[Rfam]
RNA: Selenocysteine insertion sequence 4
RNA sequence: GGCACCUGCACACGUUGCGGUGCAACGAUGACUAGAGA
Numbered sequence: 001g002g003c004a005c006c007u008g009c010a011c012a013c014g015u016u017g018c019g020g021u022g023c024a025a026c027g028a029u030g031a032c033u034a035g036a037g038a
Stems, first nucleotide, its partner, number of pairs: 006030001013027006